About this RNA:
Rfam assigns this 56-nucleotide sequence to the family "chrB-b RNA". The base pairs follow the family's consensus structure, which is taken from published work.

RNA sequence: UGGGGAUCUCAGCAGCCUCCCCGCCAUUCAAGACGCUGAAUUGCGUCCAAGGUUGC
Numbered sequence: 001u002g003g004g005g006a007u008c009u010c011a012g013c014a015g016c017c018u019c020c021c022c023g024c025c026a027u028u029c030a031a032g033a034c035g036c037u038g039a040a041u042u043g044c045g046u047c048c049a050a051g052g053u054u055g056c
Base pairs, nucleotide, nucleotide: 001023002022003021004020005019006018012056013055014054015053016052032047033046034045035044036043